[Rfam]
RNA sequence: UGACCGUUCCUAAGUCGUUAAACUAAGGAUAGAAAGAGGUGCUACCUCGUUAAAAAGCGUA
Numbered sequence: 001u002g003a004c005c006g007u008u009c010c011u012a013a014g015u016c017g018u019u020a021a022a023c024u025a026a027g028g029a030u031a032g033a034a035a036g037a038g039g040u041g042c043u044a045c046c047u048c049g050u051u052a053a054a055a056a057g058c059g060u061a
Stems, first nucleotide, its partner, number of pairs: 001017004009028003013024001036048003
GP20-b RNA: a 61-nucleotide RNA sequence. Pairs were carried over by alignment from the consensus structure, which is taken from published work.